[Rfam]
RNA: Small nucleolar RNA SNORA46
Organism: Syrrhaptes paradoxus
RNA sequence: AGCACUAUUUUUAAACCUGUUGGUGGAAUUUCCUGACCACCGUGGGUUACGCUGUAGUGCAAAAGAAUCUCCUGGCUCUUCAGAGCAUAGCUGACCCUGUUCAGCUAGUGCUCCUCUGAAGCUGAGGAACACAA
Numbered sequence: 001a002g003c004a005c006u007a008u009u010u011u012u013a014a015a016c017c018u019g020u021u022g023g024u025g026g027a028a029u030u031u032c033c034u035g036a037c038c039a040c041c042g043u044g045g046g047u048u049a050c051g052c053u054g055u056a057g058u059g060c061a062a063a064a065g066a067a068u069c070u071c072c073u074g075g076c077u078c079u080u081c082a083g084a085g086c087a088u089a090g091c092u093g094a095c096c097c098u099g100u101u102c103a104g105c106u107a108g109u110g111c112u113c114c115u116c117u118g119a120a121g122c123u124g125a126g127g128a129a130c131a132c133a134a
Base pairs, nucleotide, nucleotide: 002060003059004058005057006056007055008054014048015047016046017045021042022041023040024039025038026037068129070128071127072126073125074123075122076121077120079118082115085111086110087109088107089106090105091104093102094101